[Rfam]
RNA sequence: AAAUCCUUUAAAAACAGUCCUGUGAGGCUGUGAAGGUUGACCACGUAUCCGUGCGUUUUUUGGCGCACUCUUAUCAAUGGCUGCCUUUAAGGUAGCCAUUUUUUGCGU
Dot-bracket structure: ..(.(((((....((((((......))))))))))).)............(((((((....)))))))....(..(((((((((((...)))))))))))..).....
Numbered sequence: 001a002a003a004u005c006c007u008u009u010a011a012a013a014a015c016a017g018u019c020c021u022g023u024g025a026g027g028c029u030g031u032g033a034a035g036g037u038u039g040a041c042c043a044c045g046u047a048u049c050c051g052u053g054c055g056u057u058u059u060u061u062g063g064c065g066c067a068c069u070c071u072u073a074u075c076a077a078u079g080g081c082u083g084c085c086u087u088u089a090a091g092g093u094a095g096c097c098a099u100u101u102u103u104u105g106c107g108u
Stems, first nucleotide, its partner, number of pairs: 003038001005036005014031006051068007073103001076100011
Shown here is a 108-nucleotide RNA sequence from Pseudolactococcus hodotermopsidis, a member of the family "PyrR binding site". The source organism's lineage runs through Bacteria, Bacillati, Bacillota, Streptococcaceae and Pseudolactococcus. The family's RNA type in Rfam is cis-regulatory element.